The record is an 87-nucleotide sequence from Paenibacillus sp. MY03, which matches "c-di-GMP-I riboswitch aptamer" in Rfam.
RNA sequence: AUACGAUAAUGGCAAACCCGUUCGAAAGACGGGGACGCAAUGCUUCAGGCCUAAAGGUUUUUAUCCCAUGGCGGCUGAGCCGCCGAA
Dot-bracket structure: ...........((...((((.((....))))))...))...(((.((((((....((.(...).))...)))..)))))).......

The family's consensus secondary structure is taken from published work.